A member of the RNA family "FMN riboswitch aptamer (RFN element)" from Bacillus sp. cl95, 149 nucleotides long. A search with the family's covariance model found it, with a score of 120 bits. Pairs were carried over by alignment from the consensus structure, which is taken from published work. The RFN element is a highly conserved domain that is found frequently in the 5'-untranslated regions of prokaryotic mRNAs that encode for flavin mononucleotide (FMN) biosynthesis and transport proteins. This element is a metabolite-dependent riboswitch that directly binds FMN in the absence of proteins. In Bacillus subtilis, the riboswitch most likely controls gene expression by causing premature transcription termination within the 5' untranslated region of the ribDEAHT operon and precluding access to the ribosome-binding site of ypaA mRNA.The FMN riboswitch structure, reported in present an FMN-bound six-stem junction, adopts a butterfly-like scaffold, stapled together by opposingly directed but nearly identically folded peripheral domains.

[Rfam]
RNA sequence: UAUUUCCUUCGGGGUCGGGUGAAAUUCCCAACCGGCGGUGAUGAAACAAUAGUGUUUCUAAGUCCGUGACCCGGUUAACUUUAUCGUUAAGCGGUGGAUCUGGUGAAAUUCCAGAGCCGACAGUACAGUCUGGAUGGGAGAAGGAAUAU
Numbered sequence: 001u002a003u004u005u006c007c008u009u010c011g012g013g014g015u016c017g018g019g020u021g022a023a024a025u026u027c028c029c030a031a032c033c034g035g036c037g038g039u040g041a042u043g044a045a046a047c048a049a050u051a052g053u054g055u056u057u058c059u060a061a062g063u064c065c066g067u068g069a070c071c072c073g074g075u076u077a078a079c080u081u082u083a084u085c086g087u088u089a090a091g092c093g094g095u096g097g098a099u100c101u102g103g104u105g106a107a108a109u110u111c112c113a114g115a116g117c118c119g120a121c122a123g124u125a126c127a128g129u130c131u132g133g134a135u136g137g138g139a140g141a142a143g144g145a146a147u148a149u
Stems, first nucleotide, its partner, number of pairs: 004146007017029003031129002033119002035067004062117002071094002099115005121132003